[Rfam]
mir-8/mir-141/mir-200 microRNA precursor family: a 68-nucleotide RNA from Xenopus tropicalis. It is one of the family's seed sequences. The source organism's lineage runs through Eukaryota, Deuterostomia, Craniata, Vertebrata and Silurana. Gene Ontology terms of the family: miRNA-mediated post-transcriptional gene silencing and RISC complex.

RNA sequence: AUUGCCAUCUUACUGGGCAGCAUUGGAUUUUGUCUAUGUUUCUAAUACUGCCUGGUAAUGAUGAUUAU
Number, nucleotide and partner (000 for none) at each position: 001a000002u067003u000004g065005c000006c063007a062008u061009c060010u058011u057012a056013c055014u054015g053016g052017g051018c050019a049020g048021c000022a046023u045024u044025g043026g042027a041028u000029u000030u000031u000032g000033u000034c000035u000036a000037u000038g000039u000040u000041u027042c026043u025044a024045a023046u022047a000048c020049u019050g018051c017052c016053u015054g014055g013056u012057a011058a010059u000060g009061a008062u007063g006064a000065u004066u000067a002068u000